A member of the RNA family "SAH (S-adenosyl-L-homocysteine) riboswitch aptamer" from Rhodoferax saidenbachensis, 93 nucleotides long.
The family's consensus secondary structure is taken from published work.
On this family, see Wang et al., Mol Cell 2008: "Riboswitches that sense S-adenosylhomocysteine and activate genes involved in coenzyme recycling".
The organism belongs to Rhodoferax, within Bacteria.

RNA sequence: CUUACCAAGGGGCGCUGCAGCUGGCGCCUGUCCAGACCCCGGUCCGGCAGGUUGUUCGGUCAGGCUUGGGGACUCCAACUGCGCUCACUUGUU
Numbered sequence: 001c002u003u004a005c006c007a008a009g010g011g012g013c014g015c016u017g018c019a020g021c022u023g024g025c026g027c028c029u030g031u032c033c034a035g036a037c038c039c040c041g042g043u044c045c046g047g048c049a050g051g052u053u054g055u056u057c058g059g060u061c062a063g064g065c066u067u068g069g070g071g072a073c074u075c076c077a078a079c080u081g082c083g084c085u086c087a088c089u090u091g092u093u
Base pairs, nucleotide, nucleotide: 002072003071005069006068007067008066021059022058023057024056

A search with the family's covariance model found it, with a score of 43 bits.